[Rfam]
RNA sequence: CCUCGUGGCCUGGUCUCCAUUAUUUGAGAUGAGUUACAUCUUGGAGGUGAGGACGUGCCUCGUGAU
Number, nucleotide and partner (000 for none) at each position: 001c000002c064003u000004c062005g061006u000007g059008g058009c057010c000011u000012g000013g054014u053015c052016u051017c000018c049019a048020u047021u046022a000023u045024u044025u043026g042027a041028g040029a039030u038031g037032a000033g000034u000035u000036a000037c031038a030039u029040c028041u027042u026043g025044g024045a023046g021047g020048u019049g018050a000051g016052g015053a014054c013055g000056u000057g009058c008059c007060u000061c005062g004063u000064g002065a000066u000